[Rfam]
RNA: Small nucleolar RNA SNORA40
Organism: Camelus ferus
RNA sequence: UGGACUUGUAUUUCCUUUUGUUUAAUUUGUGGACAAAGACUUAACAGACAAGUGCGAAAGUAAAUCCUCUUUUGCAAACCACAACUCAUUCAGUAUGAGUUUUGAUACAGAUAAGAAGGGACAUG
Numbered sequence: 001u002g003g004a005c006u007u008g009u010a011u012u013u014c015c016u017u018u019u020g021u022u023u024a025a026u027u028u029g030u031g032g033a034c035a036a037a038g039a040c041u042u043a044a045c046a047g048a049c050a051a052g053u054g055c056g057a058a059a060g061u062a063a064a065u066c067c068u069c070u071u072u073u074g075c076a077a078a079c080c081a082c083a084a085c086u087c088a089u090u091c092a093g094u095a096u097g098a099g100u101u102u103u104g105a106u107a108c109a110g111a112u113a114a115g116a117a118g119g120g121a122c123a124u125g
Base pairs, nucleotide, nucleotide: 001056002055004053005052006051007050008049009048011046016038017037018036019035020034021033026031065121066120067119068118070116071115072114073113074112080104081103083101084100085099086098087097088096089095